[Rfam]
RNA sequence: AUUGCAUAACGGCCAUAGCAGAAGCGCUCACAGUGCAGACCUGUCGGAUUUUAAUGAAUCUGAAUUCUGCU
Numbered sequence: 001a002u003u004g005c006a007u008a009a010c011g012g013c014c015a016u017a018g019c020a021g022a023a024g025c026g027c028u029c030a031c032a033g034u035g036c037a038g039a040c041c042u043g044u045c046g047g048a049u050u051u052u053a054a055u056g057a058a059u060c061u062g063a064a065u066u067c068u069g070c071u
Base pairs, nucleotide, nucleotide: 011041012040013038017071018070019069020068021067022066023065024036025035026034045062046061047060048059049058050057051056